[Rfam]
RNA sequence: CCCAACAAAAGUCAAACAAGAUGAAAUCUAUUUUAGUAAAUGCAUAUUGGUGGCGUCACUUACAACUUCAAAAGUCGUGAGUAAGCAGCCUCGUGUGUAUAUACUAAAACAAUAUAACCCUAUUUAAAAGGCCUGUC
Numbered sequence: 001c002c003c004a005a006c007a008a009a010a011g012u013c014a015a016a017c018a019a020g021a022u023g024a025a026a027u028c029u030a031u032u033u034u035a036g037u038a039a040a041u042g043c044a045u046a047u048u049g050g051u052g053g054c055g056u057c058a059c060u061u062a063c064a065a066c067u068u069c070a071a072a073a074g075u076c077g078u079g080a081g082u083a084a085g086c087a088g089c090c091u092c093g094u095g096u097g098u099a100u101a102u103a104c105u106a107a108a109a110c111a112a113u114a115u116a117a118c119c120c121u122a123u124u125u126a127a128a129a130g131g132c133c134u135g136u137c
Stems, first nucleotide, its partner, number of pairs: 036104003040100008049091002057085001061081001063077001065075003
Description
A member of the RNA family "Bacteroidete tryptophan peptide leader RNA" from Coprobacter secundus, 137 nucleotides long. Gene Ontology terms of the family: S-adenosylmethionine metabolic process and regulation of gene expression. A search with the family's covariance model found it, with a score of 78 bits.